[Rfam]
RNA sequence: ACCUUAUCAAGAGUGGCGGAGGGAUCGGCCCGAUGAAGCCACGGCAACCUGCGAAGCAAGGUGCCAAAUCCGGCGUAUGCUGAGUGCGGAAGUGAUAGUCCCGCAUUCGUCCUUCGACAGAUGAGGA
Numbered sequence: 001a002c003c004u005u006a007u008c009a010a011g012a013g014u015g016g017c018g019g020a021g022g023g024a025u026c027g028g029c030c031c032g033a034u035g036a037a038g039c040c041a042c043g044g045c046a047a048c049c050u051g052c053g054a055a056g057c058a059a060g061g062u063g064c065c066a067a068a069u070c071c072g073g074c075g076u077a078u079g080c081u082g083a084g085u086g087c088g089g090a091a092g093u094g095a096u097a098g099u100c101c102c103g104c105a106u107u108c109g110u111c112c113u114u115c116g117a118c119a120g121a122u123g124a125g126g127a
Base pairs, nucleotide, nucleotide: 002126003125004124005123006122007121008120013042014041015040016039017038021031022030023029025073026072027071028070043065044064045063046062048061049060050058051057052056069119074116075115077113079111
Dot-bracket structure: .(((((((....(((((...(((.[[[[)))......)))))((((.(((((...))).))))))...(]]]]((.(.(...............................).).))..)))))))).